[Rfam]
RNA sequence: UGUUAAAAAUUUAAUCCAUUUGUAUCGUUAAAAAUUGAUGUUGUUGACGAAAUAACUAAAUAGUGACAUGUGGCAUGCCAUGUGUACUUUAUGCUGAUGUACAGGGACUAGCUUUUAACAGCAAAAGUAUAUGGAAUUUUUAAUU
Numbered sequence: 001u002g003u004u005a006a007a008a009a010u011u012u013a014a015u016c017c018a019u020u021u022g023u024a025u026c027g028u029u030a031a032a033a034a035u036u037g038a039u040g041u042u043g044u045u046g047a048c049g050a051a052a053u054a055a056c057u058a059a060a061u062a063g064u065g066a067c068a069u070g071u072g073g074c075a076u077g078c079c080a081u082g083u084g085u086a087c088u089u090u091a092u093g094c095u096g097a098u099g100u101a102c103a104g105g106g107a108c109u110a111g112c113u114u115u116u117a118a119c120a121g122c123a124a125a126a127g128u129a130u131a132u133g134g135a136a137u138u139u140u141u142a143a144u145u
Stems, first nucleotide, its partner, number of pairs: 002144011014132002018128004023123001025121001028118006
RNA: MIR7502 microRNA precursor family
Organism: Gossypium mustelinum